Rfam assigns this 96-nucleotide sequence from Rhododendron williamsianum to the family "Small nucleolar RNA Z221/R21b". Lineage of the source: Eukaryota > Euphyllophyta > Magnoliopsida > Ericoideae > Rhododendron. Gene Ontology terms of the family: nucleolus and RNA processing.
RNA sequence: GGGCAAUGAGGAGGAGUAAAGUCAUGCACCACUCUGAUAUUGAUUUUAUCAAUCUGUGCUGAUACGCGACUCUAAACCCAUAUCUUUUCUGAGCCC
Numbered sequence: 001g002g003g004c005a006a007u008g009a010g011g012a013g014g015a016g017u018a019a020a021g022u023c024a025u026g027c028a029c030c031a032c033u034c035u036g037a038u039a040u041u042g043a044u045u046u047u048a049u050c051a052a053u054c055u056g057u058g059c060u061g062a063u064a065c066g067c068g069a070c071u072c073u074a075a076a077c078c079c080a081u082a083u084c085u086u087u088u089c090u091g092a093g094c095c096c
Stems, first nucleotide, its partner, number of pairs: 001096004